RNA sequence: GGUGGUGCAAUGAUUAUAAACCAUUCCUCGUACUGAUGGAAGAUCCACUUGAACGACUCCUAUACACCCAUAGAAUCUGAGCACCA
Numbered sequence: 001g002g003u004g005g006u007g008c009a010a011u012g013a014u015u016a017u018a019a020a021c022c023a024u025u026c027c028u029c030g031u032a033c034u035g036a037u038g039g040a041a042g043a044u045c046c047a048c049u050u051g052a053a054c055g056a057c058u059c060c061u062a063u064a065c066a067c068c069c070a071u072a073g074a075a076u077c078u079g080a081g082c083a084c085c086a
Stems, first nucleotide, its partner, number of pairs: 003086002006083002